[Rfam]
RNA sequence: GUUAGGGGGAUUGUUGUCUGGCUCGGGGUCUCCGGUCGAGAAUCCUUGGCCUUGCCGGAGUUGUCGUUGACCGGAGAUUUCGGACCAGGCUUCAAUCCCUUUAAC
Numbered sequence: 001g002u003u004a005g006g007g008g009g010a011u012u013g014u015u016g017u018c019u020g021g022c023u024c025g026g027g028g029u030c031u032c033c034g035g036u037c038g039a040g041a042a043u044c045c046u047u048g049g050c051c052u053u054g055c056c057g058g059a060g061u062u063g064u065c066g067u068u069g070a071c072c073g074g075a076g077a078u079u080u081c082g083g084a085c086c087a088g089g090c091u092u093c094a095a096u097c098c099c100u101u102u103a104a105c
Stems, first nucleotide, its partner, number of pairs: 001105013016090006024082003
Shown here is a 105-nucleotide RNA from Sorghum bicolor, a member of the family "mir-166 microRNA precursor family". The organism belongs to Sorghum, within Eukaryota. The base pairs follow the family's consensus structure, which was predicted with PFOLD. From the family's description: This family represents the plant microRNA (miRNA) precursor mir-166. Rfam links the family to the GO terms RISC complex and miRNA-mediated post-transcriptional gene silencing. On this family, see Ambros, Cell 2001: "microRNAs: tiny regulators with great potential".